[Rfam]
RNA sequence: AUAACAACGUCGGGAAUACAACCCGGUGAGCAUCGCGGUCUGAGUCUUGGGAGGAAGGCCUUCAGGCGCACCCACGAGGUCGCAGCCGGCACUAACAAACGGUGCAAACGAAGGCAAGUAGACGCGGAACUUUAUCAUAAGCAAGGCUUUCCAAGCCUUGCUUUUUUUU
Numbered sequence: 001a002u003a004a005c006a007a008c009g010u011c012g013g014g015a016a017u018a019c020a021a022c023c024c025g026g027u028g029a030g031c032a033u034c035g036c037g038g039u040c041u042g043a044g045u046c047u048u049g050g051g052a053g054g055a056a057g058g059c060c061u062u063c064a065g066g067c068g069c070a071c072c073c074a075c076g077a078g079g080u081c082g083c084a085g086c087c088g089g090c091a092c093u094a095a096c097a098a099a100c101g102g103u104g105c106a107a108a109c110g111a112a113g114g115c116a117a118g119u120a121g122a123c124g125c126g127g128a129a130c131u132u133u134a135u136c137a138u139a140a141g142c143a144a145g146g147c148u149u150u151c152c153a154a155g156c157c158u159u160g161c162u163u164u165u166u167u168u169u
Stems, first nucleotide, its partner, number of pairs: 001169001003167002009027006034126004045055003059114005065087003068083002089105005140162008
Dot-bracket structure: (.((....((((((.......))))))......((((.......(((.....)))...(((((.(((((............)).))).(((((.......)))))....)))))........)))).............((((((((.......))))))))...)).)

This 169-nucleotide RNA from Pseudovibrio exalbescens belongs to the Rfam family "Alphaproteobacterial sRNA ar9". NCBI's taxonomy places the organism under Bacteria, Pseudomonadota, Alphaproteobacteria, Stappiaceae, Pseudovibrio. The match comes from Rfam's covariance-model search (55 bits). For this family Rfam cites "A survey of sRNA families in alpha-proteobacteria" (del Val et al., RNA Biol, 2012).